[Rfam]
RNA sequence: AUACUCUGGUUUCUCUUCAGAUCGUAUAAAUCUUUCGCCUUUUACUAAAGAUUUCCGUGGAGAGGAACAUUUAUGUGCGGCUCUGCCCCAGACCGUUUGCCUCUCUGGCUUUGUGGUAGG
Numbered sequence: 001a002u003a004c005u006c007u008g009g010u011u012u013c014u015c016u017u018c019a020g021a022u023c024g025u026a027u028a029a030a031u032c033u034u035u036c037g038c039c040u041u042u043u044a045c046u047a048a049a050g051a052u053u054u055c056c057g058u059g060g061a062g063a064g065g066a067a068c069a070u071u072u073a074u075g076u077g078c079g080g081c082u083c084u085g086c087c088c089c090a091g092a093c094c095g096u097u098u099g100c101c102u103c104u105c106u107g108g109c110u111u112u113g114u115g116g117u118a119g120g
Base pairs, nucleotide, nucleotide: 004079006077009068010067011066012065013064014063015062016061017060018059019058028054029053030052031051032050033049034048035047104120105119106118107117
U5 spliceosomal RNA: a 120-nucleotide RNA sequence from Chrysemys picta.
About the family: U5 RNA is a component of both types of known spliceosome. The precise function of this molecule is unknown, though it is known that the 5' loop is required for splice site selection and p220 binding, and that both the 3' stem-loop and the Sm site are important for Sm protein binding and cap methylation.
The organism belongs to Chrysemys picta, within Eukaryota.
Rfam classes the family as a spliceosomal small nuclear RNA.